[Rfam]
RNA sequence: UGCGCUAAUCCUCUUGGAAUGCAGCAAUUAUCACCUACCGUAUAGGUGUUAAGUGCUGAAUUUCAAAGGGAUUAUCACU
Numbered sequence: 001u002g003c004g005c006u007a008a009u010c011c012u013c014u015u016g017g018a019a020u021g022c023a024g025c026a027a028u029u030a031u032c033a034c035c036u037a038c039c040g041u042a043u044a045g046g047u048g049u050u051a052a053g054u055g056c057u058g059a060a061u062u063u064c065a066a067a068g069g070g071a072u073u074a075u076c077a078c079u
Stems, first nucleotide, its partner, number of pairs: 002078001004076001006074007014066007022058005028052003032048006
The record is a 79-nucleotide RNA, which matches "mir-1743 microRNA precursor family" in Rfam.
The family's consensus secondary structure was predicted with RNAalifold.
Rfam's curators put it in the seed alignment.